Rfam assigns this 109-nucleotide sequence from Corynebacterium mycetoides to the family "mraW RNA". Pairs were carried over by alignment from the consensus structure, which is taken from published work. The match comes from Rfam's covariance-model search (59 bits). It is annotated as a cis-regulatory element. NCBI's taxonomy places the organism under Bacteria, Bacillati, Actinomycetota, Actinomycetes, Corynebacterium.
[Rfam]
RNA sequence: CUGCGGAGAGCGUGUACGGACUCUGCUCGGGGCGCGGAGCGUUCUGGUGUACUUCCCCGACAUCAGAACAGCCGCCCCGGGCAGGGCCCUAUGCGUUCCCCGGCUCACG
Numbered sequence: 001c002u003g004c005g006g007a008g009a010g011c012g013u014g015u016a017c018g019g020a021c022u023c024u025g026c027u028c029g030g031g032g033c034g035c036g037g038a039g040c041g042u043u044c045u046g047g048u049g050u051a052c053u054u055c056c057c058c059g060a061c062a063u064c065a066g067a068a069c070a071g072c073c074g075c076c077c078c079g080g081g082c083a084g085g086g087c088c089c090u091a092u093g094c095g096u097u098c099c100c101c102g103g104c105u106c107a108c109g
Stems, first nucleotide, its partner, number of pairs: 010096007018089002021086014041069010